[Rfam]
RNA sequence: UGCCUUCAGGUGUUGCCCUUUCAUUGCCCCCCUUGAUGAAAGAGGCGUCAGCAAAGGCAAACAUCAAGUCUUGGGGGUCGGCCUCUGACCGGUUCCUCAAUGGUGACCUGGUCAGAAGCUCCAUACCAAGAACAGAG
Numbered sequence: 001u002g003c004c005u006u007c008a009g010g011u012g013u014u015g016c017c018c019u020u021u022c023a024u025u026g027c028c029c030c031c032c033u034u035g036a037u038g039a040a041a042g043a044g045g046c047g048u049c050a051g052c053a054a055a056g057g058c059a060a061a062c063a064u065c066a067a068g069u070c071u072u073g074g075g076g077g078u079c080g081g082c083c084u085c086u087g088a089c090c091g092g093u094u095c096c097u098c099a100a101u102g103g104u105g106a107c108c109u110g111g112u113c114a115g116a117a118g119c120u121c122c123a124u125a126c127c128a129a130g131a132a133c134a135g136a137g
Stems, first nucleotide, its partner, number of pairs: 002058005011050002014047004018042008070130004074122005084116008094105001